[Rfam]
RNA: Mammalian CPEB3 ribozyme
Organism: Crocodylus porosus
RNA sequence: CCAGUCCUGUUUGAGGCCACAGAGGAAGCACUCACAGUACAGCCCUGUCAGAUUUCAAUGAAUCUGUGAAUUCUGCU
Numbered sequence: 001c002c003a004g005u006c007c008u009g010u011u012u013g014a015g016g017c018c019a020c021a022g023a024g025g026a027a028g029c030a031c032u033c034a035c036a037g038u039a040c041a042g043c044c045c046u047g048u049c050a051g052a053u054u055u056c057a058a059u060g061a062a063u064c065u066g067u068g069a070a071u072u073c074u075g076c077u
Base pairs, nucleotide, nucleotide: 013045015044016043017042021077022076024074025073026072027071028040030038049066050065051064052063053062054061055060